[Rfam]
RNA sequence: GGCUGAUCCAAUGGCAGUGGGUUAUCAGAACUUACUAACAUUAGUGUCACUAAAGUUGGUAUACACCCCCCCCCCCUGCUAAAUUUGACUGGCUUUUU
Numbered sequence: 001g002g003c004u005g006a007u008c009c010a011a012u013g014g015c016a017g018u019g020g021g022u023u024a025u026c027a028g029a030a031c032u033u034a035c036u037a038a039c040a041u042u043a044g045u046g047u048c049a050c051u052a053a054a055g056u057u058g059g060u061a062u063a064c065a066c067c068c069c070c071c072c073c074c075c076c077u078g079c080u081a082a083a084u085u086u087g088a089c090u091g092g093c094u095u096u097u098u
Stems, first nucleotide, its partner, number of pairs: 001094005007088002010086002016077002019074003033061003037057002
RNA: Y RNA
Organism: Cavia porcellus